[Rfam]
RNA sequence: UAGUUUCUCUUAAUGGCACUGGAAGAAUUCACGGGUUUUACAUUAUCAUUAUGUCCGUGGAUUCUCUUGUGCCUUGAAGAGCAACAA
Numbered sequence: 001u002a003g004u005u006u007c008u009c010u011u012a013a014u015g016g017c018a019c020u021g022g023a024a025g026a027a028u029u030c031a032c033g034g035g036u037u038u039u040a041c042a043u044u045a046u047c048a049u050u051a052u053g054u055c056c057g058u059g060g061a062u063u064c065u066c067u068u069g070u071g072c073c074u075u076g077a078a079g080a081g082c083a084a085c086a087a
Stems, first nucleotide, its partner, number of pairs: 003085003007081004013075001015073004021067002025063002029060006

This 87-nucleotide RNA sequence from Dinothrombium tinctorium belongs to the Rfam family "mir-263 microRNA precursor family". The source organism's lineage runs through Eukaryota, Eumetazoa, Prostigmata, Parasitengona and Dinothrombium. Rfam 15.1 lists 368 matches to the family in 211 species. A reference for the family is Li et al. (2009), "Direct sequencing and expression analysis of a large number of miRNAs in Aedes aegypti and a multi-species survey of novel mosquito miRNAs", BMC Genomics. Gene Ontology terms of the family: RISC complex and miRNA-mediated post-transcriptional gene silencing.